[Rfam]
RNA sequence: AGUGGGGCCUGGCAAACCGGCGCGAAAGCCCGGGACGCAAAGCCUCCGGCCUGUCGUCCGUCCCCGAGGGGACGGGCCACGGUAGCGGGGUUGCCGGU
Numbered sequence: 001a002g003u004g005g006g007g008c009c010u011g012g013c014a015a016a017c018c019g020g021c022g023c024g025a026a027a028g029c030c031c032g033g034g035a036c037g038c039a040a041a042g043c044c045u046c047c048g049g050c051c052u053g054u055c056g057u058c059c060g061u062c063c064c065c066g067a068g069g070g071g072a073c074g075g076g077c078c079a080c081g082g083u084a085g086c087g088g089g090g091u092u093g094c095c096g097g098u
Stems, first nucleotide, its partner, number of pairs: 012038002017033004022029002041092004046088003049083003056077009